[Rfam]
RNA sequence: CUCUUAUCCCGAGCUGGUGGAGGGACAGGCCCUUUGAAGCCCAGCAACCAUCAUCAUUUACUCGUGGUGAAAGGUGCUGAACCUGAGCAAGGCAAUGACCUUGAACGAUAAGAG
Numbered sequence: 001c002u003c004u005u006a007u008c009c010c011g012a013g014c015u016g017g018u019g020g021a022g023g024g025a026c027a028g029g030c031c032c033u034u035u036g037a038a039g040c041c042c043a044g045c046a047a048c049c050a051u052c053a054u055c056a057u058u059u060a061c062u063c064g065u066g067g068u069g070a071a072a073g074g075u076g077c078u079g080a081a082c083c084u085g086a087g088c089a090a091g092g093c094a095a096u097g098a099c100c101u102u103g104a105a106c107g108a109u110a111a112g113a114g
Stems, first nucleotide, its partner, number of pairs: 001114008013042001016041003022032003026087001029083001043078004048074002051070006088103005

This 114-nucleotide sequence from Bacillus salinus belongs to the Rfam family "SAM riboswitch aptamer (S box leader)". About the family: The SAM riboswitch is found upstream of a number of genes which code for proteins involved in methionine or cysteine biosynthesis in Gram-positive bacteria. Clan: SAM clan.